[Rfam]
RNA sequence: AAGGUAAUAGAUCAACCCAUUGAUUUAUAUAUCCCCUGAGUGAAACAACGAAUUGCUGUGUGUAGUCUUUGCCCAUCUCCCACGAUGGGCCUUUUUUUUU
Numbered sequence: 001a002a003g004g005u006a007a008u009a010g011a012u013c014a015a016c017c018c019a020u021u022g023a024u025u026u027a028u029a030u031a032u033c034c035c036c037u038g039a040g041u042g043a044a045a046c047a048a049c050g051a052a053u054u055g056c057u058g059u060g061u062g063u064a065g066u067c068u069u070u071g072c073c074c075a076u077c078u079c080c081c082a083c084g085a086u087g088g089g090c091c092u093u094u095u096u097u098u099u100u
Stems, first nucleotide, its partner, number of pairs: 003021003054062003071090007
The record is a 100-nucleotide sequence from Kluyvera cryocrescens, which matches "RprA RNA" in Rfam. The organism belongs to Kluyvera, within Bacteria. It scores 88 bits against the family's covariance model. The base pairs follow the family's consensus structure, which was predicted with PFOLD. Rfam classes the family as a small RNA. Its family is annotated with mRNA binding in the Gene Ontology.